RNA sequence: GAUAAUGCAGGUGAGAAACCUGCACGCCGAUAGACUAAGGUUUCCUGAUCAACGCUAAUCGGAUCAGGGUAAGUCGGGACCUAAGGUGAACCCGAAAGGGGUAACCGAUGGACAGCAGGUUAAUAUUCCUGCACCCGCUAUGCAAUGAAAGUGACGGAGUGAUGUAGGUACUGAGUGCUGACGGAAUAGCACCCUGAGCCUAGCCUUCGGGCGAAGCGAAGUAUCGAAAUUGCUUCCAAGAAAAGCGAGCAUAGCGGCCCGUACCGCAAACCGACACAGGUAGUCAAGGAGAGAAUCCUGAGGCGCU
Numbered sequence: 001g002a003u004a005a006u007g008c009a010g011g012u013g014a015g016a017a018a019c020c021u022g023c024a025c026g027c028c029g030a031u032a033g034a035c036u037a038a039g040g041u042u043u044c045c046u047g048a049u050c051a052a053c054g055c056u057a058a059u060c061g062g063a064u065c066a067g068g069g070u071a072a073g074u075c076g077g078g079a080c081c082u083a084a085g086g087u088g089a090a091c092c093c094g095a096a097a098g099g100g101g102u103a104a105c106c107g108a109u110g111g112a113c114a115g116c117a118g119g120u121u122a123a124u125a126u127u128c129c130u131g132c133a134c135c136c137g138c139u140a141u142g143c144a145a146u147g148a149a150a151g152u153g154a155c156g157g158a159g160u161g162a163u164g165u166a167g168g169u170a171c172u173g174a175g176u177g178c179u180g181a182c183g184g185a186a187u188a189g190c191a192c193c194c195u196g197a198g199c200c201u202a203g204c205c206u207u208c209g210g211g212c213g214a215a216g217c218g219a220a221g222u223a224u225c226g227a228a229a230u231u232g233c234u235u236c237c238a239a240g241a242a243a244a245g246c247g248a249g250c251a252u253a254g255c256g257g258c259c260c261g262u263a264c265c266g267c268a269a270a271c272c273g274a275c276a277c278a279g280g281u282a283g284u285c286a287a288g289g290a291g292a293g294a295a296u297c298c299u300g301a302g303g304c305g306c307u
Stems, first nucleotide, its partner, number of pairs: 006024006025305004033285004039265002044068006053061002075261004080111002085106003089102001091100003115132005135257009151246002156236004163229001167225005173194001175192004200216001201214001203212003271280002287299004
Bacterial large subunit ribosomal RNA: a 307-nucleotide part of an RNA from Mariniphaga anaerophila. The family's consensus secondary structure is taken from published work. A search with the family's covariance model found it, with a score of 2741 bits.